[Rfam]
RNA sequence: GUGAAAUAAAUCACAUAACAAACACACCCCUUUGUUUGAACGUGAACAUUUCUCCCAUCCCCUUUGUAAGAGGCGUCACUUGGUGACGCCUCUUU
Numbered sequence: 001g002u003g004a005a006a007u008a009a010a011u012c013a014c015a016u017a018a019c020a021a022a023c024a025c026a027c028c029c030c031u032u033u034g035u036u037u038g039a040a041c042g043u044g045a046a047c048a049u050u051u052c053u054c055c056c057a058u059c060c061c062c063u064u065u066g067u068a069a070g071a072g073g074c075g076u077c078a079c080u081u082g083g084u085g086a087c088g089c090c091u092c093u094u095u
Stems, first nucleotide, its partner, number of pairs: 003052005011045004019038006070092010
This 95-nucleotide RNA sequence from Ureibacillus yapensis belongs to the Rfam family "RNA Staph. aureus E (RoxS)".
A search with the family's covariance model found it, with a score of 86 bits.
For this family Rfam cites "A nitric oxide regulated small RNA controls expression of genes involved in redox homeostasis in Bacillus subtilis" (Durand et al., PLoS Genet, 2015).
The source organism's lineage runs through Bacteria, Bacilli, Caryophanales, Caryophanaceae and Ureibacillus.
Rfam's curators write: It was shown to be regulated by the presence of nitric oxide (NO).
Rfam classes the family as a small RNA.